[Rfam]
RNA sequence: AGUCAAGAGUCUUUGGCAUCGUUUUGGUGAGCGUGAAUCUUUUGCCUUUUUGAAAGGCGAGGACAUG
Number, nucleotide and partner (000 for none) at each position: 001a000002g000003u000004c000005a000006a000007g000008a000009g064010u063011c062012u061013u000014u060015g000016g000017c059018a000019u057020c056021g000022u055023u054024u053025u052026g050027g049028u000029g047030a000031g045032c044033g043034u000035g041036a000037a000038u000039c000040u000041u035042u000043u033044g032045c031046c000047u029048u000049u027050u026051u000052g025053a024054a023055a022056g020057g019058c000059g017060a014061g012062g011063a010064c009065a000066u000067g000
This 67-nucleotide RNA from Agrobacterium tumefaciens belongs to the Rfam family "S-element". It is annotated as a cis-regulatory element. This family represents a group of S-elements from p42d and related plasmids. The S-element has multiple functions and is believed to act as a negative regulator of repC transcription, be required for efficient replication and act as a translational enhancer of repC. A reference for the family is Venkova-Canova et al. (2004), "Two discrete elements are required for the replication of a repABC plasmid: an antisense RNA and a stem-loop structure", Mol Microbiol. Pairs were carried over by alignment from the consensus structure, which is taken from published work. Gene Ontology terms of the family: mRNA transcription and translation regulator activity.